[Rfam]
RNA: MIR474 microRNA precursor family
Organism: Populus trichocarpa
RNA sequence: UCUAAAAGGUGUUGGGUUUGGCUGGGCAGCGAGAUCCAAUGCUAUUAGGUCUUGCUUGGGGGUUGGCUGCCCAGCUAGACCCACCAAUCUUGGAUC
Numbered sequence: 001u002c003u004a005a006a007a008g009g010u011g012u013u014g015g016g017u018u019u020g021g022c023u024g025g026g027c028a029g030c031g032a033g034a035u036c037c038a039a040u041g042c043u044a045u046u047a048g049g050u051c052u053u054g055c056u057u058g059g060g061g062g063u064u065g066g067c068u069g070c071c072c073a074g075c076u077a078g079a080c081c082c083a084c085c086a087a088u089c090u091u092g093g094a095u096c
Stems, first nucleotide, its partner, number of pairs: 001094002004091002009089001011085001013083018032052005038046003